[Rfam]
RNA sequence: CAAUUUCCUGGCCUUCUCUUCCCACUUCUUCCUGGAGUCAGGAAAAGCUGGGUUGAGAGAGUAAAAAAAAAAUUAU
Numbered sequence: 001c002a003a004u005u006u007c008c009u010g011g012c013c014u015u016c017u018c019u020u021c022c023c024a025c026u027u028c029u030u031c032c033u034g035g036a037g038u039c040a041g042g043a044a045a046a047g048c049u050g051g052g053u054u055g056a057g058a059g060a061g062u063a064a065a066a067a068a069a070a071a072a073u074u075a076u
Base pairs, nucleotide, nucleotide: 014059015058016057017056018055021052022051023050024049029044030043031042032041033040034039
Record summary: This 76-nucleotide RNA sequence from Saimiri boliviensis belongs to the Rfam family "mir-320 microRNA precursor family". NCBI's taxonomy places the organism under Eukaryota, Chordata, Sarcopterygii, Dipnotetrapodomorpha, Saimiri boliviensis. For this family Rfam cites "Many novel mammalian microRNA candidates identified by extensive cloning and RAKE analysis" (Berezikov et al., Genome Res, 2006). The family's consensus secondary structure was predicted with RNAalifold.